A member of the RNA family "Small nucleolar RNA snoR99" from Phaseolus vulgaris, 104 nucleotides long.
The source organism's lineage runs through Eukaryota, Magnoliopsida, Gunneridae, rosids and Phaseolus.
RNA sequence: AUGCUUUUGGGAUGUUCUUGUCUUCAACAUUCACUUCAUCCAUCCGUUUCACUUUGUCAGCUCUGUUUUUUGUGUUUUGCUGAUCAUUGUAGGGUGGAAUAUCU
Number, nucleotide and partner (000 for none) at each position: 001a000002u000003g000004c000005u000006u000007u000008u000009g000010g000011g000012a000013u000014g000015u000016u000017c000018u000019u000020g000021u000022c000023u000024u000025c000026a000027a000028c000029a000030u000031u000032c000033a000034c000035u000036u000037c000038a000039u098040c097041c096042a095043u094044c093045c000046g000047u000048u000049u000050c000051a000052c000053u000054u000055u000056g084057u083058c082059a081060g080061c079062u000063c000064u000065g000066u000067u000068u000069u000070u000071u000072g000073u000074g000075u000076u000077u000078u000079g061080c060081u059082g058083a057084u056085c000086a000087u000088u000089g000090u000091a000092g000093g044094g043095u042096g041097g040098a039099a000100u000101a000102u000103c000104u000
Source information: Rfam links the family to the GO terms RNA processing and nucleolus.